[Rfam]
RNA sequence: CUCUGGAGAGAACGGCCUUCACGCUGCAGCGGUUUUGGAGCGGCAGACGGCGCGUCACCCAAGGGGAAACCCGCAUGGGGCGGGGUAACUCUCAGGUACAAAGGACAGAG
Dot-bracket structure: (((((......(((......................................))).(((.(..(((...(((((.....)))))....))))..)))........)))))
A member of the RNA family "Glycine riboswitch aptamer" from Paenibacillus beijingensis, 110 nucleotides long. Clan: Glycine riboswitch clan. The organism belongs to Paenibacillus, within Bacteria.